[Rfam]
The family of this 170-nucleotide sequence from Iocasia frigidifontis is "glmS glucosamine-6-phosphate activated ribozyme aptamer". By type it is a riboswitch. Pairs were carried over by alignment from the consensus structure, which is taken from published work.
RNA sequence: AAAAAAGAAAAAGCGCCAGGACUUAGAUUGAACGGGAAGAAAUCUAAGUUGACGAGGGGGAGGUUUAUCGAGUUUUCGGCGGAUGCCUCCAGGUCUUACUGAUUAGACUUAAAUCUAUUCUUUAAAACUGUUGAGUAAUCAGCAGCUUAAAGGGGGUAGAAAAUCAGGCA
Numbered sequence: 001a002a003a004a005a006a007g008a009a010a011a012a013g014c015g016c017c018a019g020g021a022c023u024u025a026g027a028u029u030g031a032a033c034g035g036g037a038a039g040a041a042a043u044c045u046a047a048g049u050u051g052a053c054g055a056g057g058g059g060g061a062g063g064u065u066u067a068u069c070g071a072g073u074u075u076u077c078g079g080c081g082g083a084u085g086c087c088u089c090c091a092g093g094u095c096u097u098a099c100u101g102a103u104u105a106g107a108c109u110u111a112a113a114u115c116u117a118u119u120c121u122u123u124a125a126a127a128c129u130g131u132u133g134a135g136u137a138a139u140c141a142g143c144a145g146c147u148u149a150a151a152g153g154g155g156g157u158a159g160a161a162a163a164u165c166a167g168g169c170a
Stems, first nucleotide, its partner, number of pairs: 020050008029041001059090005068079004091110006114160007128145007